[Rfam]
RNA sequence: CUUCCCUAUGAAGAAUGAUAUUUGUAUGUUAAAUAAAAGUAGUGGGCUGAUCUCCAUUGAUGACUGACCAAUUCUGAGGGAUG
Numbered sequence: 001c002u003u004c005c006c007u008a009u010g011a012a013g014a015a016u017g018a019u020a021u022u023u024g025u026a027u028g029u030u031a032a033a034u035a036a037a038a039g040u041a042g043u044g045g046g047c048u049g050a051u052c053u054c055c056a057u058u059g060a061u062g063a064c065u066g067a068c069c070a071a072u073u074c075u076g077a078g079g080g081a082u083g
Base pairs, nucleotide, nucleotide: 001083003081004080005079006078